About this RNA
Rfam assigns this 144-nucleotide sequence from Hoeflea marina to the family "Alphaproteobacterial sRNA ar7".
RNA sequence: CAUCGGCAAUAAACAAGCCGCCGUCUGGUUCACCGGCUCGUCCCCCGCCGCGACCAGGCUAGGACAAGGGCCUCCCCGCCCCUCUUCUGGCCCUUGUCCCCGGAUAUGCCGCCAUGGUCCCCCCUCCGGCCAUGGCGGCUUUUC
Numbered sequence: 001c002a003u004c005g006g007c008a009a010u011a012a013a014c015a016a017g018c019c020g021c022c023g024u025c026u027g028g029u030u031c032a033c034c035g036g037c038u039c040g041u042c043c044c045c046c047g048c049c050g051c052g053a054c055c056a057g058g059c060u061a062g063g064a065c066a067a068g069g070g071c072c073u074c075c076c077c078g079c080c081c082c083u084c085u086u087c088u089g090g091c092c093c094u095u096g097u098c099c100c101c102g103g104a105u106a107u108g109c110c111g112c113c114a115u116g117g118u119c120c121c122c123c124c125u126c127c128g129g130c131c132a133u134g135g136c137g138g139c140u141u142u143u144c
Base pairs, nucleotide, nucleotide: 024058025057026056027055028054029053030052035049036048037047062099063098064097065096066095067094068093069092070091071090072089106140109138110137111136112135113134114133115132116131117130118129120128
The organism belongs to Hoeflea, within Bacteria.
The literature on the family includes a 2012 paper in RNA Biol by del Val et al., "A survey of sRNA families in alpha-proteobacteria".